RNA sequence: AACACCGGCUAGGGGUGUCCCGGGGAAUGAUCCGGGGCUGAGACAGACCCUUCGAACCUGAUCCAGUUAACGCUGGCGUAGGAAAGCGGUGCAGAAACACC
Numbered sequence: 001a002a003c004a005c006c007g008g009c010u011a012g013g014g015g016u017g018u019c020c021c022g023g024g025g026a027a028u029g030a031u032c033c034g035g036g037g038c039u040g041a042g043a044c045a046g047a048c049c050c051u052u053c054g055a056a057c058c059u060g061a062u063c064c065a066g067u068u069a070a071c072g073c074u075g076g077c078g079u080a081g082g083a084a085a086g087c088g089g090u091g092c093a094g095a096a097a098c099a100c101c
Base pairs, nucleotide, nucleotide: 006089008087009086010085011051012050013049014048016045017038018037019036020035021034022033023032024031057082058081059080060079063076064075065074066073
The family of this 101-nucleotide sequence from Thiohalomonas denitrificans is "TPP riboswitch aptamer (THI element)". A search with the family's covariance model found it, with a score of 69 bits.